[Rfam]
RNA sequence: CCCAGCGGUAGUCAGCUACCCGUGGCUGCGCAGUGCCUGUGAUAGUGUUAUGCUGCUGGGAGAGAAACGCGCUGCCGAGGGGCUCCUGGCACCGCCGGUGCUGUCCUGGCAUUCGGCGGUGGCGGGGUUUGGCAGCGCUCUGCAUGCUCGAGAGUGGAGUAACUCCUGCUCCGUGGAGUUAAUCCUAGAUGGGAUGCAGACAGC
Numbered sequence: 001c002c003c004a005g006c007g008g009u010a011g012u013c014a015g016c017u018a019c020c021c022g023u024g025g026c027u028g029c030g031c032a033g034u035g036c037c038u039g040u041g042a043u044a045g046u047g048u049u050a051u052g053c054u055g056c057u058g059g060g061a062g063a064g065a066a067a068c069g070c071g072c073u074g075c076c077g078a079g080g081g082g083c084u085c086c087u088g089g090c091a092c093c094g095c096c097g098g099u100g101c102u103g104u105c106c107u108g109g110c111a112u113u114c115g116g117c118g119g120u121g122g123c124g125g126g127g128u129u130u131g132g133c134a135g136c137g138c139u140c141u142g143c144a145u146g147c148u149c150g151a152g153a154g155u156g157g158a159g160u161a162a163c164u165c166c167u168g169c170u171c172c173g174u175g176g177a178g179u180u181a182a183u184c185c186u187a188g189a190u191g192g193g194a195u196g197c198a199g200a201c202a203g204c
Stems, first nucleotide, its partner, number of pairs: 001060009011051002015046004020041001021039002024037003069138009083127004090121004095116002097112001099111004140199006147192001156185003160181007

A member of the RNA family "Small nucleolar RNA SNORA74" from Rhinoptilus africanus, 204 nucleotides long.
The base pairs follow the family's consensus structure, which was predicted with PFOLD.
The family's RNA type in Rfam is H/ACA-box small nucleolar RNA.
Rfam links the family to the GO terms RNA processing and nucleolus.
The literature on the family includes a 1997 paper in Genes Dev by Ganot et al., "The family of box ACA small nucleolar RNAs is defined by an evolutionarily conserved secondary structure and ubiquitous sequence elements essential for RNA accumulation".
NCBI's taxonomy places the organism under Eukaryota, Deuterostomia, Tetrapoda, Neoaves, Rhinoptilus.
Clan: SNORA74 clan.
About the family: U19 belongs to the H/ACA class of snoRNAs. snoRNAs bind a number of proteins (including dyskerin, Gar1p and Nop10p in the case of the H/ACA class) to form snoRNP complexes.